[Rfam]
RNA: pan motif
Organism: Anaerobacillus alkaliphilus
RNA sequence: UGGGCAGUAUCGUUUACUUGAACUGCACCAAAAUGUUUGGUCAUACCUGUUUUUGAAUUUAAUUAAUUCUGCCUUGAUCCCAAAAGGACUAGGACAGAGGG
Numbered sequence: 001u002g003g004g005c006a007g008u009a010u011c012g013u014u015u016a017c018u019u020g021a022a023c024u025g026c027a028c029c030a031a032a033a034u035g036u037u038u039g040g041u042c043a044u045a046c047c048u049g050u051u052u053u054u055g056a057a058u059u060u061a062a063u064u065a066a067u068u069c070u071g072c073c074u075u076g077a078u079c080c081c082a083a084a085a086g087g088a089c090u091a092g093g094a095c096a097g098a099g100g101g
Base pairs, nucleotide, nucleotide: 001030002029003028004026005025006024007023008022010021011020069097070096071095072093073092074091076089078088079087080086